[Rfam]
RNA sequence: CUUUGUGAUCUUCCACAGCUUUCUUGAACUGCACGCAUGAUGAAUAAUCCCUUUGGUUAAUUGUGAUCUGGUCUCUGAGAGAUCGUAGCUAGACUCGAUCGGUUGCAUUGGCAUCAGAGAGAGCAGUUCAAUAAAGCUGUGGGAAAUUGCAGAGA
Numbered sequence: 001c002u003u004u005g006u007g008a009u010c011u012u013c014c015a016c017a018g019c020u021u022u023c024u025u026g027a028a029c030u031g032c033a034c035g036c037a038u039g040a041u042g043a044a045u046a047a048u049c050c051c052u053u054u055g056g057u058u059a060a061u062u063g064u065g066a067u068c069u070g071g072u073c074u075c076u077g078a079g080a081g082a083u084c085g086u087a088g089c090u091a092g093a094c095u096c097g098a099u100c101g102g103u104u105g106c107a108u109u110g111g112c113a114u115c116a117g118a119g120a121g122a123g124c125a126g127u128u129c130a131a132u133a134a135a136g137c138u139g140u141g142g143g144a145a146a147u148u149g150c151a152g153a154g155a
Base pairs, nucleotide, nucleotide: 003152004151005150006149007148013142014141015140017138018137019136020135021134022133024131025130026129027128029126030125031124032123
Dot-bracket structure: ..(((((.....(((.((((((.((((.((((..........................................................................................)))).)))).)))))).))).....)))))...

The family of this 155-nucleotide sequence from Oryza sativa is "MIR396 microRNA precursor family". Rfam's curators put it in the seed alignment. Its family is annotated with RISC complex and miRNA-mediated post-transcriptional gene silencing in the Gene Ontology. The base pairs follow the family's consensus structure, which was predicted with WAR. NCBI's taxonomy places the organism under Eukaryota, Euphyllophyta, Spermatophyta, Poales, Oryza sativa.